Notes
A member of the RNA family "Metazoan signal recognition particle RNA" from Glaucidium brasilianum, 299 nucleotides long.

[Rfam]
RNA sequence: GCCGGGCACGGUGGCUUGUGCCUGUAAUCCAAGCGCCGGGGAGGCUGAGGCUGGUGGACGGCUUGAGCCCGGGGGUGCUGGGCUGCAGCGAGCUGUGCCGAGCGGGCGUCCGCGCUAAGGCCGGCAUCGAUAUGGUGGUCCUGGGGAUGCUGGGGGCCACCAGGUCGCCUAAGGAGGGGUGAACCGGCCCAGGUCGGAGACGGAGCAGGUCAAAGCUCCCGUGCCGGUCAGUAGCGGGAUGGCGCCUGUGAACAGUCCCUGUGGCACAGCCCGGGCGAGAGAGCGGGACCCCGUUUCCU
Numbered sequence: 001g002c003c004g005g006g007c008a009c010g011g012u013g014g015c016u017u018g019u020g021c022c023u024g025u026a027a028u029c030c031a032a033g034c035g036c037c038g039g040g041g042a043g044g045c046u047g048a049g050g051c052u053g054g055u056g057g058a059c060g061g062c063u064u065g066a067g068c069c070c071g072g073g074g075g076u077g078c079u080g081g082g083c084u085g086c087a088g089c090g091a092g093c094u095g096u097g098c099c100g101a102g103c104g105g106g107c108g109u110c111c112g113c114g115c116u117a118a119g120g121c122c123g124g125c126a127u128c129g130a131u132a133u134g135g136u137g138g139u140c141c142u143g144g145g146g147a148u149g150c151u152g153g154g155g156g157c158c159a160c161c162a163g164g165u166c167g168c169c170u171a172a173g174g175a176g177g178g179g180u181g182a183a184c185c186g187g188c189c190c191a192g193g194u195c196g197g198a199g200a201c202g203g204a205g206c207a208g209g210u211c212a213a214a215g216c217u218c219c220c221g222u223g224c225c226g227g228u229c230a231g232u233a234g235c236g237g238g239a240u241g242g243c244g245c246c247u248g249u250g251a252a253c254a255g256u257c258c259c260u261g262u263g264g265c266a267c268a269g270c271c272c273g274g275g276c277g278a279g280a281g282a283g284c285g286g287g288a289c290c291c292c293g294u295u296u297c298c299u
Stems, first nucleotide, its partner, number of pairs: 001045003004023008028042003047297005053291002059286001061284004067276007078269003082265007090257001092256005098250001102249008110238002113236005119229009128167004133162010144151002168174002176219005186211004194203003

For this family Rfam cites "Towards the structure of the mammalian signal recognition particle" (Wild et al., Curr Opin Struct Biol, 2002).
Lineage of the source: Eukaryota > Gnathostomata > Sauropsida > Telluraves > Glaucidium.
Its Rfam clan is "SRP clan".
The base pairs follow the family's consensus structure, which is taken from published work.
Its family is annotated with SRP-dependent cotranslational protein targeting to membrane, signal sequence recognition and signal recognition particle, endoplasmic reticulum targeting in the Gene Ontology.
The family's RNA type in Rfam is non-coding RNA gene.